[Rfam]
RNA sequence: GUAAUUGAAUCCAUUUUGCCUAAGACUCAGGUGAUGCUUGCAUCUUAAUAUCCUGCCGAGGAAGUUUAAAAAAACUUUUCCCGUGUGUCUUCUAGCGCACGGGAUUUCUUUUGCAAAAU
Dot-bracket structure: ...........................((((.(((......))).......)))).......................((((((((((......))))))))))...............
A member of the RNA family "Ribosomal protein L10 leader" from Leuconostoc mesenteroides, 119 nucleotides long. On this family, see Yakhnin et al., Nucleic Acids Res 2015: "Ribosomal protein L10(L12)4 autoregulates expression of the Bacillus subtilis rplJL operon by a transcription attenuation mechanism". Its family is annotated with regulation of gene expression in the Gene Ontology. The sequence is in the family's curated seed alignment. About the family: This family is a putative r-protein leader autoregulatory structure found in B. subtilis and other low-GC Gram-positive bacteria. It is located in the 5' untranslated regions of mRNAs encoding ribosomal proteins L10 and L12 (rplJ-rplL). A Rho-independent transcription terminator structure that is probably involved in regulation is included at the 3' end.